RNA sequence: UGUGUGUGUGUGUGUGUGUGUCGGAACUCGUGGAAUACAACUUAAUGCACAUAUGCAAAGAAUAAAUCCUCCUUUGCGAUCAGCACUCACUGCUUCGUGUGAGUCUUGAUACGUGUGAGAAGGGGUGUU
Numbered sequence: 001u002g003u004g005u006g007u008g009u010g011u012g013u014g015u016g017u018g019u020g021u022c023g024g025a026a027c028u029c030g031u032g033g034a035a036u037a038c039a040a041c042u043u044a045a046u047g048c049a050c051a052u053a054u055g056c057a058a059a060g061a062a063u064a065a066a067u068c069c070u071c072c073u074u075u076g077c078g079a080u081c082a083g084c085a086c087u088c089a090c091u092g093c094u095u096c097g098u099g100u101g102a103g104u105c106u107u108g109a110u111a112c113g114u115g116u117g118a119g120a121a122g123g124g125g126u127g128u129u
Stems, first nucleotide, its partner, number of pairs: 001057009011047001014042001017039005027032001066126005073119004081108003085104006
Description:
Rfam assigns this 129-nucleotide RNA sequence from Octodon degus to the family "Small nucleolar RNA SNORA40". From the family's description: The snoRNA ACA 40 belongs to the H/ACA family of snoRNAs and guides the pseudouridylation of 28S rRNA subunit at position U4565. NB This family has a high threshold value to exclude a large number of closely related sequences that do not appear to have conserved H and ACA boxes, and may be pseudogenes. It scores 64 bits against the family's covariance model. Taxonomically the source falls in Octodon (Eukaryota, Tetrapoda, Theria, Rodentia). Its family is annotated with nucleolus and RNA processing in the Gene Ontology. Pairs were carried over by alignment from the consensus structure, which was predicted with RNAalifold.